[Rfam]
RNA sequence: UACUGGCUUUAGGGGUAUUCUGAAAAAGAAUUGAGACAGUCCCUUUGAACCUGAUCCGGCUUACAUCGGCGUAGGGAAAAGCGCAUAAGACAGG
Numbered sequence: 001u002a003c004u005g006g007c008u009u010u011a012g013g014g015g016u017a018u019u020c021u022g023a024a025a026a027a028g029a030a031u032u033g034a035g036a037c038a039g040u041c042c043c044u045u046u047g048a049a050c051c052u053g054a055u056c057c058g059g060c061u062u063a064c065a066u067c068g069g070c071g072u073a074g075g076g077a078a079a080a081g082c083g084c085a086u087a088a089g090a091c092a093g094g
Base pairs, nucleotide, nucleotide: 006082007081008080009079010078011044012043013042014041016038017031018030019029020028021027050075051074052073053072056069057068058067059066
Dot-bracket structure: .....(((((((((.((((((.....)))))......)..)))).....((((..((((......))))..))))..)))))............
Source information
Shown here is a 94-nucleotide sequence from Sphingobacterium spiritivorum, a member of the family "TPP riboswitch aptamer (THI element)". From the family's description: Vitamin B(1) in its active form thiamin pyrophosphate (TPP) is an essential coenzyme that is synthesised by coupling of pyrimidine and thiazole moieties in bacteria. Lineage of the source: Bacteria > Bacteroidota > Sphingobacteriia > Sphingobacteriaceae > Sphingobacterium spiritivorum.